[Rfam]
RNA: Makes More Granules Regulator RNA (mmgR)
RNA sequence: CCCCGCUGCCCUCGAUGGGCGUUUCCUCCCUAGACUUCGGGCCGCUCCUCGUGGGCGGCCUCUUUUUUGGGCCGUC
Numbered sequence: 001c002c003c004c005g006c007u008g009c010c011c012u013c014g015a016u017g018g019g020c021g022u023u024u025c026c027u028c029c030c031u032a033g034a035c036u037u038c039g040g041g042c043c044g045c046u047c048c049u050c051g052u053g054g055g056c057g058g059c060c061u062c063u064u065u066u067u068u069g070g071g072c073c074g075u076c
Stems, first nucleotide, its partner, number of pairs: 008020004039061009